[Rfam]
RNA sequence: UCUGCGGAAUGUUUCCUUGUGAUCCACAAGGAACAAGAAUUUUCAAUUUGCCGACGCGUUAAACGAGAUACGAGUAGCAGAGGUAAACGUUCCAUAUUCUGCAGGAAUAUGAGGAGAACGUUUUAUUGAAAAAUCUUGAAUAUAGCAGC
Numbered sequence: 001u002c003u004g005c006g007g008a009a010u011g012u013u014u015c016c017u018u019g020u021g022a023u024c025c026a027c028a029a030g031g032a033a034c035a036a037g038a039a040u041u042u043u044c045a046a047u048u049u050g051c052c053g054a055c056g057c058g059u060u061a062a063a064c065g066a067g068a069u070a071c072g073a074g075u076a077g078c079a080g081a082g083g084u085a086a087a088c089g090u091u092c093c094a095u096a097u098u099c100u101g102c103a104g105g106a107a108u109a110u111g112a113g114g115a116g117a118a119c120g121u122u123u124u125a126u127u128g129a130a131a132a133a134u135c136u137u138g139a140a141u142a143u144a145g146c147a148g149c
Base pairs, nucleotide, nucleotide: 002148003147004146005145009141010140013033014032015031016030017029018028019027020026021025034138035137036136037135038134040132041131042130043129044128045127046126047125051083052082056078057077085123086122087121088120089119090118093111094110095109096108

Shown here is a 149-nucleotide RNA sequence from Enterococcus faecalis, a member of the family "Enterococcus-1 RNA". The sequence is in the family's curated seed alignment.